Rfam assigns this 102-nucleotide RNA from Serratia symbiotica to the family "Gammaprotebacteria rimP leader". Lineage of the source: Bacteria > Pseudomonadati > Gammaproteobacteria > Yersiniaceae > Serratia symbiotica. Rfam links the family to the GO term regulation of gene expression. Rfam classes the family as a cis-regulatory leader. The literature on the family includes a 2010 paper in Genome Biol by Naville and Gautheret, "Premature terminator analysis sheds light on a hidden world of bacterial transcriptional attenuation". The base pairs follow the family's consensus structure, which is taken from published work.

[Rfam]
RNA sequence: AGUCGCUCAGCGGCACAUAGGGUCCAGUUACAUAACGCCCCGAUUUUUCGGGGUUUUUUGUUAUUUGGCAGCAGAAUCACUGGGCUAUUUAGCCCUUUUUUU
Numbered sequence: 001a002g003u004c005g006c007u008c009a010g011c012g013g014c015a016c017a018u019a020g021g022g023u024c025c026a027g028u029u030a031c032a033u034a035a036c037g038c039c040c041c042g043a044u045u046u047u048u049c050g051g052g053g054u055u056u057u058u059u060g061u062u063a064u065u066u067g068g069c070a071g072c073a074g075a076a077u078c079a080c081u082g083g084g085c086u087a088u089u090u091a092g093c094c095c096u097u098u099u100u101u102u
Stems, first nucleotide, its partner, number of pairs: 034057002037054006082095004
Dot-bracket structure: .................................((.((((((......)))))).))........................((((......)))).......